Annotation:
Small nucleolar RNA SNORD22: a 118-nucleotide sequence from Spermophilus dauricus. The literature on the family includes a 1994 paper in Science by Tycowski et al., "Requirement for intron-encoded U22 small nucleolar RNA in 18S ribosomal RNA maturation".

[Rfam]
RNA sequence: UCCCAAUGAAGAAACAUUCACAUCUUACUUCCUGUCUGGUCCCAAAAUUGGUAAAGGUGAAUCCACUAGGGCUGGCUGUGAGAGAAGAGCAAAAUUUGUUCCAGAAAGAACUAGGGAA
Dot-bracket structure: ((((.............................................................................................................)))).
Pairs were carried over by alignment from the consensus structure, which was predicted with PFOLD. The source organism's lineage runs through Eukaryota, Vertebrata, Mammalia, Sciuromorpha and Spermophilus. Its family is annotated with RNA processing and nucleolus in the Gene Ontology.